[Rfam]
Rfam assigns this 155-nucleotide sequence from Pseudorhodobacter sp. MZDSW-24AT to the family "ALIL pseudoknot". It scores 60 bits against the family's covariance model. Rfam links the family to the GO term positive regulation of translational frameshifting. Lineage of the source: Bacteria > Pseudomonadati > Alphaproteobacteria > Paracoccaceae > Pseudorhodobacter. It is annotated as a cis-regulatory element.

RNA sequence: AGCGUAUUUUGCGAUGGCGGAACUCGACCGCCGGUCGAAGUGAUUGUGGGCGUUAUUGAUGCGCAUCGGAAUGCGCACGGGGCUUGGCCAUCGCGGCGCCAUCGGUCCGAGCCCGAUGGACAAGGCCGAUCUGCAGCGUUCUGCCGAUUGCCCCC
Numbered sequence: 001a002g003c004g005u006a007u008u009u010u011g012c013g014a015u016g017g018c019g020g021a022a023c024u025c026g027a028c029c030g031c032c033g034g035u036c037g038a039a040g041u042g043a044u045u046g047u048g049g050g051c052g053u054u055a056u057u058g059a060u061g062c063g064c065a066u067c068g069g070a071a072u073g074c075g076c077a078c079g080g081g082g083c084u085u086g087g088c089c090a091u092c093g094c095g096g097c098g099c100c101a102u103c104g105g106u107c108c109g110a111g112c113c114c115g116a117u118g119g120a121c122a123a124g125g126c127c128g129a130u131c132u133g134c135a136g137c138g139u140u141c142u143g144c145c146g147a148u149u150g151c152c153c154c155c
Stems, first nucleotide, its partner, number of pairs: 016032005079154004089150002091147002093144004